Source information
A member of the RNA family "TPP riboswitch aptamer (THI element)" from Paenisporosarcina sp. HGH0030, 140 nucleotides long. The family's consensus secondary structure is taken from published work. The match comes from Rfam's covariance-model search (80 bits).

RNA sequence: AUCUUCCACUAGGGGGACCUUGCAAUUGAUAAAUGGAAAUCAUUUAUUCAUUAAAUAAAGGUUGAGAUUAAAGUAAUGCUUUAAGACCCUUAGAACCUGAUCUGGUUUAUACCAGCGUAGGGAAGUGGAGUUGCGGAGCA
Numbered sequence: 001a002u003c004u005u006c007c008a009c010u011a012g013g014g015g016g017a018c019c020u021u022g023c024a025a026u027u028g029a030u031a032a033a034u035g036g037a038a039a040u041c042a043u044u045u046a047u048u049c050a051u052u053a054a055a056u057a058a059a060g061g062u063u064g065a066g067a068u069u070a071a072a073g074u075a076a077u078g079c080u081u082u083a084a085g086a087c088c089c090u091u092a093g094a095a096c097c098u099g100a101u102c103u104g105g106u107u108u109a110u111a112c113c114a115g116c117g118u119a120g121g122g123a124a125g126u127g128g129a130g131u132u133g134c135g136g137a138g139c140a
Base pairs, nucleotide, nucleotide: 006128007127008126009125010124011090012089013088014087017062018061019060020059021058069083070082071081072080073079096121097120098119099118102115103114104113105112